[Rfam]
RNA sequence: AGGCGUAUGAUGAUAUUACUCGGAUUCCCCUUCAGGACAUCAUUGAAUGAUGCAAUUUCGGGUUUCUGAUGCC
Numbered sequence: 001a002g003g004c005g006u007a008u009g010a011u012g013a014u015a016u017u018a019c020u021c022g023g024a025u026u027c028c029c030c031u032u033c034a035g036g037a038c039a040u041c042a043u044u045g046a047a048u049g050a051u052g053c054a055a056u057u058u059c060g061g062g063u064u065u066c067u068g069a070u071g072c073c
Stems, first nucleotide, its partner, number of pairs: 002073004
RNA: Small nucleolar RNA snoR60
Organism: Kalanchoe fedtschenkoi